[Rfam]
RNA: terC RNA
RNA sequence: UAAGCGGGCCGGGCCCCUCUGGCGGCAGACCAUAAUAUGUCAGGUUUGCCGUGAUGUCGGACCGCAUCG
Numbered sequence: 001u002a003a004g005c006g007g008g009c010c011g012g013g014c015c016c017c018u019c020u021g022g023c024g025g026c027a028g029a030c031c032a033u034a035a036u037a038u039g040u041c042a043g044g045u046u047u048g049c050c051g052u053g054a055u056g057u058c059g060g061a062c063c064g065c066a067u068c069g
Base pairs, nucleotide, nucleotide: 006063007062009060010059011058012057022052023051024050025049026048027047028046029045030044031043